[Rfam]
This 163-nucleotide RNA sequence from Vitis rotundifolia belongs to the Rfam family "Small nucleolar RNA snoR145". It scores 81 bits against the family's covariance model.
RNA sequence: GGGCGAAGGUCCCAGCAGAGAGGUGCGGUCUCAGAGAUGAGAAUGGAAGUGCCUUUCUAACACUUAGAUGAUUGCCUUCGCAGAAUAAUGAUAGGCCGAAUUGAAGGAUGCUCCAUAAUUUUAUCUGAUUUUUGGAGCGUCUGGAACCCUUGGCUACAAUUUC
Numbered sequence: 001g002g003g004c005g006a007a008g009g010u011c012c013c014a015g016c017a018g019a020g021a022g023g024u025g026c027g028g029u030c031u032c033a034g035a036g037a038u039g040a041g042a043a044u045g046g047a048a049g050u051g052c053c054u055u056u057c058u059a060a061c062a063c064u065u066a067g068a069u070g071a072u073u074g075c076c077u078u079c080g081c082a083g084a085a086u087a088a089u090g091a092u093a094g095g096c097c098g099a100a101u102u103g104a105a106g107g108a109u110g111c112u113c114c115a116u117a118a119u120u121u122u123a124u125c126u127g128a129u130u131u132u133u134g135g136a137g138c139g140u141c142u143g144g145a146a147c148c149c150u151u152g153g154c155u156a157c158a159a160u161u162u163c
Stems, first nucleotide, its partner, number of pairs: 003081007011020001013018001025057001027055001095154005107141002110138006117131001